[Rfam]
RNA sequence: UGUCCCAUUUUAGUACCACUGAUUCGCUUUCCUUCCAUAAUUGUGGCUAUGCUAAUGGGAUAGAGAAAGCUGCUGUGUGGACUGGAAGGGAAGAUAUUUUUGCUCUUACUCUCAUAUGAAACAACAGAACAAAUCUAC
Numbered sequence: 001u002g003u004c005c006c007a008u009u010u011u012a013g014u015a016c017c018a019c020u021g022a023u024u025c026g027c028u029u030u031c032c033u034u035c036c037a038u039a040a041u042u043g044u045g046g047c048u049a050u051g052c053u054a055a056u057g058g059g060a061u062a063g064a065g066a067a068a069g070c071u072g073c074u075g076u077g078u079g080g081a082c083u084g085g086a087a088g089g090g091a092a093g094a095u096a097u098u099u100u101u102g103c104u105c106u107u108a109c110u111c112u113c114a115u116a117u118g119a120a121a122c123a124a125c126a127g128a129a130c131a132a133a134u135c136u137a138c
Stems, first nucleotide, its partner, number of pairs: 004059004016046004075125001076123002092112003
Notes:
Shown here is a 138-nucleotide RNA sequence from Hymenochirus boettgeri, a member of the family "Small nucleolar RNA SNORA29". The organism belongs to Hymenochirus, within Eukaryota. ACA29 is a member of the H/ACA class of snoRNA that guide the sites of modification of uridines to pseudouridines. It is annotated as an H/ACA-box small nucleolar RNA.